[Rfam]
RNA sequence: UGGAGCCUGAACCGAGACCUGGACAUGGGAGAAAAAGUGAGGAAGAAGGCACUAAAGUCAGCUGAAAGUGAAAGUGGAAGAAAUUCCUCCGGAUUUCGCAGGAACCUGCCGCGUUGGAACCAGAGGUAAGUAACAGUAUCUGAUUAUGGGACAAGAAUUAAGCCAGCAUCCAAUUUAUGUAGGACAGUUAAAAGAGGCAUUAAAAACGCGAGGACUGAAGGUUAAAAGUAAUGAUUUGUUUAAAAUUUUGAUUUUUAAAGGAUACCUGCCCUU
Numbered sequence: 001u002g003g004a005g006c007c008u009g010a011a012c013c014g015a016g017a018c019c020u021g022g023a024c025a026u027g028g029g030a031g032a033a034a035a036a037g038u039g040a041g042g043a044a045g046a047a048g049g050c051a052c053u054a055a056a057g058u059c060a061g062c063u064g065a066a067a068g069u070g071a072a073a074g075u076g077g078a079a080g081a082a083a084u085u086c087c088u089c090c091g092g093a094u095u096u097c098g099c100a101g102g103a104a105c106c107u108g109c110c111g112c113g114u115u116g117g118a119a120c121c122a123g124a125g126g127u128a129a130g131u132a133a134c135a136g137u138a139u140c141u142g143a144u145u146a147u148g149g150g151a152c153a154a155g156a157a158u159u160a161a162g163c164c165a166g167c168a169u170c171c172a173a174u175u176u177a178u179g180u181a182g183g184a185c186a187g188u189u190a191a192a193a194g195a196g197g198c199a200u201u202a203a204a205a206a207c208g209c210g211a212g213g214a215c216u217g218a219a220g221g222u223u224a225a226a227a228g229u230a231a232u233g234a235u236u237u238g239u240u241u242a243a244a245a246u247u248u249u250g251a252u253u254u255u256u257a258a259a260g261g262a263u264a265c266c267u268g269c270c271c272u273u
Stems, first nucleotide, its partner, number of pairs: 006029003038046001085128001087126001088124002094119001095117001097113003101109001136152002139150004159202003162198003209250004214246001216244001219237006258273004263268001
RNA: Mason-Pfizer monkey virus packaging signal
Organism: Piliocolobus tephrosceles